RNA sequence: UGCGACACCCAUCAAAGGGGUAGUUCCCCAUCCAGGAGCUACUAUUACUCGCGUUG
Numbered sequence: 001u002g003c004g005a006c007a008c009c010c011a012u013c014a015a016a017g018g019g020g021u022a023g024u025u026c027c028c029c030a031u032c033c034a035g036g037a038g039c040u041a042c043u044a045u046u047a048c049u050c051g052c053g054u055u056g
Stems, first nucleotide, its partner, number of pairs: 017045001019043009
RNA: Plastid-psbN 5UTR RNA